[Rfam]
RNA sequence: GGAUCAAUGAUGAAAACAAGUCUCUGAGGAUGCUGAUCGACCUGACCUAUGCCACUCUGAGCUCC
Numbered sequence: 001g002g003a004u005c006a007a008u009g010a011u012g013a014a015a016a017c018a019a020g021u022c023u024c025u026g027a028g029g030a031u032g033c034u035g036a037u038c039g040a041c042c043u044g045a046c047c048u049a050u051g052c053c054a055c056u057c058u059g060a061g062c063u064c065c
Stems, first nucleotide, its partner, number of pairs: 001065003005061001

Rfam assigns this 65-nucleotide sequence from Mesocricetus auratus to the family "Small nucleolar RNA SNORD109A". A reference for the family is Runte et al. (2001), "The IC-SNURF-SNRPN transcript serves as a host for multiple small nucleolar RNA species and as an antisense RNA for UBE3A", Hum Mol Genet. Clan: SNORD74 clan. The organism belongs to Mesocricetus, within Eukaryota. Rfam 15.1 lists 412 matches to the family in 134 species. It is annotated as a C/D-box small nucleolar RNA. Rfam's curators write: Humans have two copies of the SNORD109 gene, SNORD109A and SNORD109B.